[Rfam]
RNA sequence: CAACCGGCGAGAACCGUGUGAAUCAUGUAGUAUAGUAAUUCAUGCGGUUCUCGCAAA
Numbered sequence: 001c002a003a004c005c006g007g008c009g010a011g012a013a014c015c016g017u018g019u020g021a022a023u024c025a026u027g028u029a030g031u032a033u034a035g036u037a038a039u040u041c042a043u044g045c046g047g048u049u050c051u052c053g054c055a056a057a
Stems, first nucleotide, its partner, number of pairs: 007054017025036001
Plastid-ccsA-ndhD-1 3UTR RNA: a 57-nucleotide RNA from Helianthus annuus.
Taxonomically the source falls in Helianthus (Eukaryota, Streptophyta, campanulids, Heliantheae alliance).
The match comes from Rfam's covariance-model search (60 bits).